[Rfam]
RNA sequence: GAAUGCACACACGGGGGCCCGCACCAGUGGGCUGAGAGGACGGCUAGGGCCGUCGACCGUCGAACCUGUCCGGGUAAUGCCGGCGUAGGGAGUACUUUCCGUGAGCAA
Numbered sequence: 001g002a003a004u005g006c007a008c009a010c011a012c013g014g015g016g017g018c019c020c021g022c023a024c025c026a027g028u029g030g031g032c033u034g035a036g037a038g039g040a041c042g043g044c045u046a047g048g049g050c051c052g053u054c055g056a057c058c059g060u061c062g063a064a065c066c067u068g069u070c071c072g073g074g075u076a077a078u079g080c081c082g083g084c085g086u087a088g089g090g091a092g093u094a095c096u097u098u099c100c101g102u103g104a105g106c107a108a
Stems, first nucleotide, its partner, number of pairs: 009093002011060004016054001017032005040053004065089004070083004
Annotation
This 108-nucleotide RNA sequence from Rhodococcus sp. WMMA185 belongs to the Rfam family "TPP riboswitch aptamer (THI element)". For this family Rfam cites "Comparative genomics of thiamin biosynthesis in procaryotes. New genes and regulatory mechanisms" (Rodionov et al., J Biol Chem, 2002). Its family is annotated with thiamine pyrophosphate binding in the Gene Ontology. The source organism's lineage runs through Bacteria, Actinomycetota, Actinomycetes, Mycobacteriales and Rhodococcus.